[Rfam]
RNA sequence: AGUUAUCACAGUGCUGAUGCUGUCCAUUCUAAAGGUACAGUACUGUGAUAACUGA
Numbered sequence: 001a002g003u004u005a006u007c008a009c010a011g012u013g014c015u016g017a018u019g020c021u022g023u024c025c026a027u028u029c030u031a032a033a034g035g036u037a038c039a040g041u042a043c044u045g046u047g048a049u050a051a052c053u054g055a
Base pairs, nucleotide, nucleotide: 001053002052003051004050005049006048007047008046009045010044011043012042013041014040016038018037019036020035021034
The record is a 55-nucleotide RNA from Canis lupus, which matches "mir-101 microRNA precursor family" in Rfam.
Rfam's curators put it in the seed alignment.
For this family Rfam cites "Identification of tissue-specific microRNAs from mouse" (Lagos-Quintana et al., Curr Biol, 2002).
Taxonomically the source falls in Canis lupus (Eukaryota, Teleostomi, Sarcopterygii, Mammalia).
The base pairs follow the family's consensus structure, which was predicted with RNAalifold.